[Rfam]
A member of the RNA family "6S / SsrS RNA" from Metapseudomonas resinovorans, 180 nucleotides long. The match comes from Rfam's covariance-model search (120 bits).

RNA sequence: AGCUCCCUGGAGUGUUUGCCAGUCGGUGAUGUCCCUGAGCCGAUAAAUGCAACCACGGGGGUUGCAAGUUGGGGCCGGUGUGCAUGUCCGCCUGACGGAAAGCCUUAACGCCUCCUGCAACCUCCACCUUGAACUUUAGGGUUCAAGGGCUAACCCGACAGCGGCACCACCGGGGAGUCU
Numbered sequence: 001a002g003c004u005c006c007c008u009g010g011a012g013u014g015u016u017u018g019c020c021a022g023u024c025g026g027u028g029a030u031g032u033c034c035c036u037g038a039g040c041c042g043a044u045a046a047a048u049g050c051a052a053c054c055a056c057g058g059g060g061g062u063u064g065c066a067a068g069u070u071g072g073g074g075c076c077g078g079u080g081u082g083c084a085u086g087u088c089c090g091c092c093u094g095a096c097g098g099a100a101a102g103c104c105u106u107a108a109c110g111c112c113u114c115c116u117g118c119a120a121c122c123u124c125c126a127c128c129u130u131g132a133a134c135u136u137u138a139g140g141g142u143u144c145a146a147g148g149g150c151u152a153a154c155c156c157g158a159c160a161g162c163g164g165c166a167c168c169a170c171c172g173g174g175g176a177g178u179c180u
Base pairs, nucleotide, nucleotide: 002178003177004176005175006174007173008172009171010170012167013166014165015164017163018162019161031150032149033148034147036145037144038143039142040141041140057125058124059123061121062120063119064118065117066116068115071114072113073112074111075110082103083102087099088098089097090096